[Rfam]
Annotation: The record is a 118-nucleotide sequence, which matches "RT-4 RNA" in Rfam. Pairs were carried over by alignment from the consensus structure, which is taken from published work. Rfam classes the family as a small RNA.
RNA sequence: UAAACCGCAGGCGGUUGAAAUACCGCUAAGUCACCAUUAUUGGAAAGACGAGUUGAAAUAAGUCCGGUACAGGGUUUUGUUAGUACCAAAAGGUGGGAAAGCAAGAUAGGAGAUAGAA
Numbered sequence: 001u002a003a004a005c006c007g008c009a010g011g012c013g014g015u016u017g018a019a020a021u022a023c024c025g026c027u028a029a030g031u032c033a034c035c036a037u038u039a040u041u042g043g044a045a046a047g048a049c050g051a052g053u054u055g056a057a058a059u060a061a062g063u064c065c066g067g068u069a070c071a072g073g074g075u076u077u078u079g080u081u082a083g084u085a086c087c088a089a090a091a092g093g094u095g096g097g098a099a100a101g102c103a104a105g106a107u108a109g110g111a112g113a114u115a116g117a118a
Stems, first nucleotide, its partner, number of pairs: 003054003010027006031048002034043003063111003074107006086096003
Dot-bracket structure: ..(((....((((((......))))))...((.(((....)))...))...)))........(((........((((((......(((.....))).....)))))).))).......